[Rfam]
The record is an 80-nucleotide RNA from Lytechinus variegatus, which matches "mir-153 microRNA precursor family" in Rfam. The base pairs follow the family's consensus structure, which was predicted with RNAalifold.

RNA sequence: AGCCCGCUCAUUUUUGUGUUUAUGCAACUUUUGUCUCUUGCCGAUCAGUGUAGUUGCAUAGUCACAAAAGUGAUUGGGAG
Numbered sequence: 001a002g003c004c005c006g007c008u009c010a011u012u013u014u015u016g017u018g019u020u021u022a023u024g025c026a027a028c029u030u031u032u033g034u035c036u037c038u039u040g041c042c043g044a045u046c047a048g049u050g051u052a053g054u055u056g057c058a059u060a061g062u063c064a065c066a067a068a069a070g071u072g073a074u075u076g077g078g079a080g
Base pairs, nucleotide, nucleotide: 003078004077005076006075008073009072010071011070012069013068014067015066016065017064018063020061023058024057025056026055027054028053029052